[Rfam]
RNA sequence: CCAGGGUCUCACGACCCUGGCUAUGAUCUAACGUCCGCGAUGCGGACU
Numbered sequence: 001c002c003a004g005g006g007u008c009u010c011a012c013g014a015c016c017c018u019g020g021c022u023a024u025g026a027u028c029u030a031a032c033g034u035c036c037g038c039g040a041u042g043c044g045g046a047c048u
Base pairs, nucleotide, nucleotide: 001020002019003018004017005016006015007014008013033047034046035045036044037043038042